[Rfam]
A member of the RNA family "mir-1255 microRNA precursor family" from Cebus imitator, 67 nucleotides long.
The organism belongs to Cebus, within Eukaryota.
A reference for the family is Brameier (2010), "Genome-wide comparative analysis of microRNAs in three non-human primates", BMC Res Notes.
RNA sequence: UUCUAUAGAUGAGCAAAGAAAGCGGUUUCCACCUCAAGAAACCACUUUCUUUGCUCAUCCAUAAGGA
Numbered sequence: 001u002u003c004u005a006u007a008g009a010u011g012a013g014c015a016a017a018g019a020a021a022g023c024g025g026u027u028u029c030c031a032c033c034u035c036a037a038g039a040a041a042c043c044a045c046u047u048u049c050u051u052u053g054c055u056c057a058u059c060c061a062u063a064a065g066g067a
Base pairs, nucleotide, nucleotide: 001066002065004063005062008059009058010057011056012055013054014053015052016051017050018049019048020047021046022045024043025042026041027040028039
Dot-bracket structure: ((.((..(((((((((((((((.(((((..........))))).)))))))))))))))..)).)).